The family of this 71-nucleotide sequence from Morganella morganii is "tpke11". Taxonomically the source falls in Morganella morganii subsp. morganii (Bacteria, Pseudomonadota, Gammaproteobacteria, Morganella). Pairs were carried over by alignment from the consensus structure, which was predicted with WAR.
[Rfam]
RNA sequence: CACUGAAAACCGGCACGGGCGUUGAGGAAACUCUGCGCCCGUGUGCUUGUGUUAAGGGACAAAACGGAUGG
Numbered sequence: 001c002a003c004u005g006a007a008a009a010c011c012g013g014c015a016c017g018g019g020c021g022u023u024g025a026g027g028a029a030a031c032u033c034u035g036c037g038c039c040c041g042u043g044u045g046c047u048u049g050u051g052u053u054a055a056g057g058g059a060c061a062a063a064a065c066g067g068a069u070g071g
Stems, first nucleotide, its partner, number of pairs: 013044009024033003